The family of this 101-nucleotide RNA sequence from Megasphaera geminata is "SAM riboswitch aptamer (S box leader)". Rfam describes the family as follows. The SAM riboswitch is found upstream of a number of genes which code for proteins involved in methionine or cysteine biosynthesis in Gram-positive bacteria. The base pairs follow the family's consensus structure, which is taken from published work.
RNA sequence: GUUUCAUCAAGAGCAAUCGAGGGAUAUGGCCCGAUGACAUUGCGGCAACCCCCGUCAACGGGAAGGUGCCAACUCCAACGGCGUAUGCCGGCAGAUGAAUG
Numbered sequence: 001g002u003u004u005c006a007u008c009a010a011g012a013g014c015a016a017u018c019g020a021g022g023g024a025u026a027u028g029g030c031c032c033g034a035u036g037a038c039a040u041u042g043c044g045g046c047a048a049c050c051c052c053c054g055u056c057a058a059c060g061g062g063a064a065g066g067u068g069c070c071a072a073c074u075c076c077a078a079c080g081g082c083g084u085a086u087g088c089c090g091g092c093a094g095a096u097g098a099a100u101g
Stems, first nucleotide, its partner, number of pairs: 003099006013043005021032003027077003044070004049066002051062004074093001079090004